[Rfam]
RNA sequence: UAGAACAAUGUAGAUAAGGGAAGUCGGCAAAAUGGAUCCGUAACUUCGGGAAAAGGAUUGGCUCUGAGGGCUGGGCCUAGGGGUCUGCAGCUGUGAAGUUCGGGACUGCGGUGGUCUACCCAACUGGAAACGGCUGGGCGGACUGCUGCGUGUCCUGAGUGGACGGCUGUAGAAGCUUUGGCGUUCCCUAGGCGACGAACAGCCAACUCAGAACUGGUACGGACAAGGGGAAUCCGACUGUUUAAUUAAAACAAAGCAUUGUGAUGGUCCUAAAGGAUGUUGACACAAUGUGAUUUCUGCCCAGUGCUCUGAAUGUCAAAGUGAAGAAAUUCAACCAAGCGCGGGUAAACGGCGGGAGUAACUAUGACUCUCUUAAGGUAGCCAAAUGCCUCGUCAUCUAAUUAGUGACGCGCAUGAAUGGAUUAACGAGAUUCCCACUGUCCCUAUCUACUAUCUAGCGAAACCACAGCCAAGGGAACGGGCUUGGAA
Numbered sequence: 001u002a003g004a005a006c007a008a009u010g011u012a013g014a015u016a017a018g019g020g021a022a023g024u025c026g027g028c029a030a031a032a033u034g035g036a037u038c039c040g041u042a043a044c045u046u047c048g049g050g051a052a053a054a055g056g057a058u059u060g061g062c063u064c065u066g067a068g069g070g071c072u073g074g075g076c077c078u079a080g081g082g083g084u085c086u087g088c089a090g091c092u093g094u095g096a097a098g099u100u101c102g103g104g105a106c107u108g109c110g111g112u113g114g115u116c117u118a119c120c121c122a123a124c125u126g127g128a129a130a131c132g133g134c135u136g137g138g139c140g141g142a143c144u145g146c147u148g149c150g151u152g153u154c155c156u157g158a159g160u161g162g163a164c165g166g167c168u169g170u171a172g173a174a175g176c177u178u179u180g181g182c183g184u185u186c187c188c189u190a191g192g193c194g195a196c197g198a199a200c201a202g203c204c205a206a207c208u209c210a211g212a213a214c215u216g217g218u219a220c221g222g223a224c225a226a227g228g229g230g231a232a233u234c235c236g237a238c239u240g241u242u243u244a245a246u247u248a249a250a251a252c253a254a255a256g257c258a259u260u261g262u263g264a265u266g267g268u269c270c271u272a273a274a275g276g277a278u279g280u281u282g283a284c285a286c287a288a289u290g291u292g293a294u295u296u297c298u299g300c301c302c303a304g305u306g307c308u309c310u311g312a313a314u315g316u317c318a319a320a321g322u323g324a325a326g327a328a329a330u331u332c333a334a335c336c337a338a339g340c341g342c343g344g345g346u347a348a349a350c351g352g353c354g355g356g357a358g359u360a361a362c363u364a365u366g367a368c369u370c371u372c373u374u375a376a377g378g379u380a381g382c383c384a385a386a387u388g389c390c391u392c393g394u395c396a397u398c399u400a401a402u403u404a405g406u407g408a409c410g411c412g413c414a415u416g417a418a419u420g421g422a423u424u425a426a427c428g429a430g431a432u433u434c435c436c437a438c439u440g441u442c443c444c445u446a447u448c449u450a451c452u453a454u455c456u457a458g459c460g461a462a463a464c465c466a467c468a469g470c471c472a473a474g475g476g477a478a479c480g481g482g483c484u485u486g487g488a489a
Stems, first nucleotide, its partner, number of pairs: 001457004010451007018443003035059005044049001060215002063212006069204005075193009084173003088169004097160001099158002102155003107150011119138004124133003216220001228436007235428002239253003256291008267278004295422003299353003304350002306346004311342001314341003322333004354372006373377001393409005470487005
Shown here is a 489-nucleotide part of an RNA from Volvox reticuliferus, a member of the family "Eukaryotic large subunit ribosomal RNA". Gene Ontology terms of the family: structural constituent of ribosome and ribosome. The family is grouped with related families in Rfam's "LSU clan". Lineage of the source: Eukaryota > Viridiplantae > Chlorophyta > Volvocaceae > Volvox.